[Rfam]
RNA sequence: GUGCCUGUCGCCAAUGAUGGAUUUUUGUUAAGAUGAAACAAAAUGAUUUUUACCUUAACAUUUCGUCACUACCACUGAGGCGACGUGUCU
Dot-bracket structure: (.((.(((((((..................................................................))))))).)).)